[Rfam]
RNA sequence: AUCGGGAAGAGGAAGAAAGAGAGGGUAUAAGAGCAUUAGGAAUGAGAAUAUCGAGGAAAGCCAAGCUUAGCGAUUUCUUCCUAGCAAUAAAGGUGGAAAUUUAAUUUGGUGUUUCCCGAUGCCUCUCAUUCCUACUGUUCUUAAGCCCUCCUUCCUCUUCCUUUUGGCU
Dot-bracket structure: ........(((((.(((...(((..(.((((((((.(((((((((((.(((.(.((.((((.................................................))))))).)))..))))))))))).)))))))).)..))).))).))))).........
Shown here is a 169-nucleotide RNA sequence from Panicum virgatum, a member of the family "MIR2118 microRNA precursor family".